[Rfam]
RNA sequence: AUGGAUCUUCGGGGUAAGGUGAAAUUCCUGACCGGCGGUGAUAGUCCGUUCCUUGAACGGCCUUCAGCCCGCGACUCGCAAUCUGAAACUAGACUGCGACUGAUCUGGUGUAAAUCCAGAGCCGACGGUAAAGUCCGGAUGGGAGAAGAUCAAG
Numbered sequence: 001a002u003g004g005a006u007c008u009u010c011g012g013g014g015u016a017a018g019g020u021g022a023a024a025u026u027c028c029u030g031a032c033c034g035g036c037g038g039u040g041a042u043a044g045u046c047c048g049u050u051c052c053u054u055g056a057a058c059g060g061c062c063u064u065c066a067g068c069c070c071g072c073g074a075c076u077c078g079c080a081a082u083c084u085g086a087a088a089c090u091a092g093a094c095u096g097c098g099a100c101u102g103a104u105c106u107g108g109u110g111u112a113a114a115u116c117c118a119g120a121g122c123c124g125a126c127g128g129u130a131a132a133g134u135c136c137g138g139a140u141g142g143g144a145g146a147a148g149a150u151c152a153a154g
Base pairs, nucleotide, nucleotide: 004151005150006149007148008147009146010145017029018028019027031134032133033124034123035072036071037070038069067122068121076099077098078097079096104120105119106118107117108116126137127136128135
RNA: FMN riboswitch aptamer (RFN element)